This 51-nucleotide RNA from Aliiglaciecola lipolytica belongs to the Rfam family "L31-Gammaproteobacteria ribosomal protein leader". The literature on the family includes a 2020 paper in BMC Microbiol by Eckert and Weinberg, "Discovery of 20 novel ribosomal leader candidates in bacteria and archaea". Pairs were carried over by alignment from the consensus structure, which is taken from published work.

RNA sequence: CGUAUGGUGUGCAACUUCGGGUUGUAUAGCGAUACGGCCCAGAAAUGAGGU
Numbered sequence: 001c002g003u004a005u006g007g008u009g010u011g012c013a014a015c016u017u018c019g020g021g022u023u024g025u026a027u028a029g030c031g032a033u034a035c036g037g038c039c040c041a042g043a044a045a046u047g048a049g050g051u
Base pairs, nucleotide, nucleotide: 001036002035003034004033005032007030008029011025012024013023014022015021
Clan: Ribosomal Protein L31 Leader clan. The family's RNA type in Rfam is cis-regulatory leader.